[Rfam]
The record is a 175-nucleotide RNA from Moschus moschiferus, which matches "Small nucleolar RNA SNORA81" in Rfam.
A reference for the family is Gu et al. (2005), "A novel experimental approach for systematic identification of box H/ACA snoRNAs from eukaryotes", Nucleic Acids Res.
A search with the family's covariance model found it, with a score of 89 bits.
It is annotated as an H/ACA-box small nucleolar RNA.
RNA sequence: ACCUUCUUAUUUAAGCUCAGUGCUAAAAUUGCAGUAGCUAGUAUAUGCAGUGUCUUAGUGCUUGUAAUAAAGCUAACUGAGUAGACACAAGAAGAAAAACAACUGUGCCAGAUAGUAGAAAAACUGCAGGUAACUAACUCCAGGGUAUUUUGUUCUAAAAUUUGAUACAGUAAUA
Dot-bracket structure: .................(...(.((...(((..(..(((((.((((...)))).)))))..).....)))...)).)...)......................((((.((((..............(..(.(......).)..)................)))).))))......